[Rfam]
A member of the RNA family "U1 spliceosomal RNA" from Ursus americanus, 162 nucleotides long. Pairs were carried over by alignment from the consensus structure, which is taken from published work. The family's RNA type in Rfam is spliceosomal small nuclear RNA. Lineage of the source: Eukaryota > Teleostomi > Euteleostomi > Eutheria > Ursus. Rfam describes the family as follows. U1 is a small nuclear RNA (snRNA) component of the spliceosome (involved in pre-mRNA splicing). Its 5' end forms complementary base pairs with the 5' splice junction, thus defining the 5' donor site of an intron. There are significant differences in sequence and secondary structure between metazoan and yeast U1 snRNAs, the latter being much longer (568 nucleotides as compared to 164 nucleotides in human). Nevertheless, secondary structure predictions suggest that all U1 snRNAs share a 'common core' consisting of helices I, II, the proximal region of III, and IV. This family does not contain the larger yeast sequences.
RNA sequence: GAAAUCAGCAGGGGGAGGGAAUAUGUCAUGAUCACAAAGGUGGUUUCUCCGGGGUGAGGCUUAUCUAUUGCACUUUGGCUGUGCUGACCCUGCAAUUUCCCCAAAUAUGGGAAAUUUGGUUGCACAAUUUGUUGAAGAGGGGAACUGCAUUCAUGCUUUUUG
Numbered sequence: 001g002a003a004a005u006c007a008g009c010a011g012g013g014g015g016a017g018g019g020a021a022u023a024u025g026u027c028a029u030g031a032u033c034a035c036a037a038a039g040g041u042g043g044u045u046u047c048u049c050c051g052g053g054g055u056g057a058g059g060c061u062u063a064u065c066u067a068u069u070g071c072a073c074u075u076u077g078g079c080u081g082u083g084c085u086g087a088c089c090c091u092g093c094a095a096u097u098u099c100c101c102c103a104a105a106u107a108u109g110g111g112a113a114a115u116u117u118g119g120u121u122g123c124a125c126a127a128u129u130u131g132u133u134g135a136a137g138a139g140g141g142g143a144a145c146u147g148c149a150u151u152c153a154u155g156c157u158u159u160u161u162g
Stems, first nucleotide, its partner, number of pairs: 012123001014121002017049005025044005051091001053090002056088001058085003062081002065078002093118003096114003100110002142161003147156003